[Rfam]
RNA sequence: AAAAGAAUAGGCGAUGGAGUUCGCCAUUAAAUGCUUAGACGCUAAUGACUCCUACUCUUAA
Numbered sequence: 001a002a003a004a005g006a007a008u009a010g011g012c013g014a015u016g017g018a019g020u021u022c023g024c025c026a027u028u029a030a031a032u033g034c035u036u037a038g039a040c041g042c043u044a045a046u047g048a049c050u051c052c053u054a055c056u057c058u059u060a061a
Stems, first nucleotide, its partner, number of pairs: 010025004016052006033042002
A member of the RNA family "Fluoride riboswitch aptamer (crcB RNA motif)" from Romboutsia lituseburensis, 61 nucleotides long.
The base pairs follow the family's consensus structure, which is taken from published work.